[Rfam]
Background: The family of this 60-nucleotide sequence from Bubo bubo is "Prion pseudoknot". The family has 148 seed sequences and 421 matches in Rfam 15.1. On this family, see Barrette et al., Nucleic Acids Res 2001: "Pseudoknots in prion protein mRNAs confirmed by comparative sequence analysis and pattern searching". It scores 40 bits against the family's covariance model. Its family is annotated with translation in the Gene Ontology.
RNA sequence: CCAUGGUGGAGGCUGGAUUGGGGGAUGGGCAAUGGUGGGAAGUUCCAUGGUGGAGGCUGG
Numbered sequence: 001c002c003a004u005g006g007u008g009g010a011g012g013c014u015g016g017a018u019u020g021g022g023g024g025a026u027g028g029g030c031a032a033u034g035g036u037g038g039g040a041a042g043u044u045c046c047a048u049g050g051u052g053g054a055g056g057c058u059g060g
Stems, first nucleotide, its partner, number of pairs: 001050006
Dot-bracket structure: ((((((......................................))))))..........
Rfam describes the family as follows. This family represents a predicted pseudoknot structure found in prion protein mRNA. It has been suggested that the family has a possible effect in prion protein translation.